[Rfam]
The record is a 139-nucleotide sequence from Todus mexicanus, which matches "Small Cajal body specific RNA 11" in Rfam.
RNA sequence: GUGUCCUGACCUCAUUCUGGCUGUUCCCCUCACUGGAGCUGUGGUUGUGGGGCCCGGGGUGGACACAAAUCAAGUUACCUCUCAUGUUAGGAGGGCUACCAAAGAUGUGUGCUAGCCCUUAAAGGCAAGAGAGGACAUG
Dot-bracket structure: .(((((...((..............((.(.((.............)).).))....))..)))))............((((((...((..(((((((.(((......)).)..)))))))..))....)))))).....
The source organism's lineage runs through Eukaryota, Metazoa, Bilateria, Euteleostomi and Todus. Rfam classes the family as a small Cajal body RNA. Rfam 15.1 lists 853 matches to the family in 557 species. The literature on the family includes a 2002 paper in EMBO J by Darzacq et al., "Cajal body-specific small nuclear RNAs: a novel class of 2'-O-methylation and pseudouridylation guide RNAs".